[Rfam]
RNA sequence: UGCAAUGAUAGAGGUCGCGGAAUCGCAAGAGUAUCCGGCAAUACCCUGCAAAGGGGCAGAGCACCCCGCCGGAGAAAGGGCCCUUCCGCCGAAGGGCCGGCCCUCUGCCUGGAGAGCCGGUUGCCUGGGACGUUGGGAUAACAUCUCACGGACUGCCACAUAUCGACUGUGUGGAGCGCUAUCAUUGAG
Numbered sequence: 001u002g003c004a005a006u007g008a009u010a011g012a013g014g015u016c017g018c019g020g021a022a023u024c025g026c027a028a029g030a031g032u033a034u035c036c037g038g039c040a041a042u043a044c045c046c047u048g049c050a051a052a053g054g055g056g057c058a059g060a061g062c063a064c065c066c067c068g069c070c071g072g073a074g075a076a077a078g079g080g081c082c083c084u085u086c087c088g089c090c091g092a093a094g095g096g097c098c099g100g101c102c103c104u105c106u107g108c109c110u111g112g113a114g115a116g117c118c119g120g121u122u123g124c125c126u127g128g129g130a131c132g133u134u135g136g137g138a139u140a141a142c143a144u145c146u147c148a149c150g151g152a153c154u155g156c157c158a159c160a161u162a163u164c165g166a167c168u169g170u171g172u173g174g175a176g177c178g179c180u181a182u183c184a185u186u187g188a189g
Base pairs, nucleotide, nucleotide: 006184007183008182009181010180011179017089018088019087020086021085022084025081026080034073035072036071037070038069039068093126094125095124096121097120098119099118100117101116103114104113127154128153131150132149133148135147136146137145138144156174157173158172159171160170161169162168
Dot-bracket structure: .....((((((.....((((((..((.......((((((............................))))))......))..))))))...(((((((((.((........)).))))))..)))((..(((.((((.....)))))))..)).(((((((.....)))))))....)))))).....